[Rfam]
RNA: mir-393 microRNA precursor family
RNA sequence: UGGGGAAGCAUCCAAAGGGAUCGCAUUGAUCCUUCAUCGGUCGAUCGCUUCCAUGGCGGUCGUCGUCUACACAAGCACGGCUAGCUCGACGGAUCAUGCGAUCCUUUUGGAGGCUUCCUC
Numbered sequence: 001u002g003g004g005g006a007a008g009c010a011u012c013c014a015a016a017g018g019g020a021u022c023g024c025a026u027u028g029a030u031c032c033u034u035c036a037u038c039g040g041u042c043g044a045u046c047g048c049u050u051c052c053a054u055g056g057c058g059g060u061c062g063u064c065g066u067c068u069a070c071a072c073a074a075g076c077a078c079g080g081c082u083a084g085c086u087c088g089a090c091g092g093a094u095c096a097u098g099c100g101a102u103c104c105u106u107u108u109g110g111a112g113g114c115u116u117c118c119u120c
Stems, first nucleotide, its partner, number of pairs: 002120005008114002011111011023099004028095005
Dot-bracket structure: .(((((.((.(((((((((((.((((.(((((..........................................................))))))))).))))))))))).)).)))))